[Rfam]
A member of the RNA family "A. fumigatus sRNA Afu_309" from Madurella mycetomatis, 280 nucleotides long.
On this family, see Jochl et al., Nucleic Acids Res 2008: "Small ncRNA transcriptome analysis from Aspergillus fumigatus suggests a novel mechanism for regulation of protein synthesis".
The organism belongs to Madurella, within Eukaryota.
RNA sequence: CUCCUUUCCUCCUUCACGGAUCUGUGCCCAGCGAUCCUCUGCCGCCCCCGGUGGUCAGGGUCGAUUGCUGCGGCAGUUCGGUGAACCAAGGAGCCAUCUACUCUCCGUGAUGUCAAUUUCCACCCGACAGGUCCAAGAUCGACCGAACUCUGGGGAGCCUCGUUCGCUGUAAAAGGCUUGAGCGUGGUGAGCCGGAUGAUUUAGGAGACGCCAUAUUCCAAGCCGUUCGCCGAGACCGUCGGUCUAUGGGGCUGGGGGAAACCAUGGCUUGCCUACAUUU
Numbered sequence: 001c002u003c004c005u006u007u008c009c010u011c012c013u014u015c016a017c018g019g020a021u022c023u024g025u026g027c028c029c030a031g032c033g034a035u036c037c038u039c040u041g042c043c044g045c046c047c048c049c050g051g052u053g054g055u056c057a058g059g060g061u062c063g064a065u066u067g068c069u070g071c072g073g074c075a076g077u078u079c080g081g082u083g084a085a086c087c088a089a090g091g092a093g094c095c096a097u098c099u100a101c102u103c104u105c106c107g108u109g110a111u112g113u114c115a116a117u118u119u120c121c122a123c124c125c126g127a128c129a130g131g132u133c134c135a136a137g138a139u140c141g142a143c144c145g146a147a148c149u150c151u152g153g154g155g156a157g158c159c160u161c162g163u164u165c166g167c168u169g170u171a172a173a174a175g176g177c178u179u180g181a182g183c184g185u186g187g188u189g190a191g192c193c194g195g196a197u198g199a200u201u202u203a204g205g206a207g208a209c210g211c212c213a214u215a216u217u218c219c220a221a222g223c224c225g226u227u228c229g230c231c232g233a234g235a236c237c238g239u240c241g242g243u244c245u246a247u248g249g250g251g252c253u254g255g256g257g258g259a260a261a262c263c264a265u266g267g268c269u270u271g272c273c274u275a276c277a278u279u280u
Stems, first nucleotide, its partner, number of pairs: 018134008026074003029070003033066004037060005042054005082126002090114002093111001095109001145202003148198001149196005158187002161184006167176002207273001209271001210268005223257002226254001229252003234244004
It scores 154 bits against the family's covariance model.